[Rfam]
RNA sequence: AUAAAGUCUCAUAAAAAAAAAAAUCUGUUCUUAUCAGUUUAAUAUCUGAUACGUCCCCUAUCUGGGGACUACAUAUUAAACGGAUUUUUGAGACUGGGAGUCGGAGAAGGAGCUUGCUCCGUCCGCUCCACGCAUCGACCCGGUAUUGCAGUACGUCCGGGAACGGUGCGCCUCUA
Numbered sequence: 001a002u003a004a005a006g007u008c009u010c011a012u013a014a015a016a017a018a019a020a021a022a023a024u025c026u027g028u029u030c031u032u033a034u035c036a037g038u039u040u041a042a043u044a045u046c047u048g049a050u051a052c053g054u055c056c057c058c059u060a061u062c063u064g065g066g067g068a069c070u071a072c073a074u075a076u077u078a079a080a081c082g083g084a085u086u087u088u089u090g091a092g093a094c095u096g097g098g099a100g101u102c103g104g105a106g107a108a109g110g111a112g113c114u115u116g117c118u119c120c121g122u123c124c125g126c127u128c129c130a131c132g133c134a135u136c137g138a139c140c141c142g143g144u145a146u147u148g149c150a151g152u153a154c155g156u157c158c159g160g161g162a163a164c165g166g167u168g169c170g171c172c173u174c175u176a
Stems, first nucleotide, its partner, number of pairs: 032051006053069006097129005103123002109120004132169006139161005
RNA: U2 spliceosomal RNA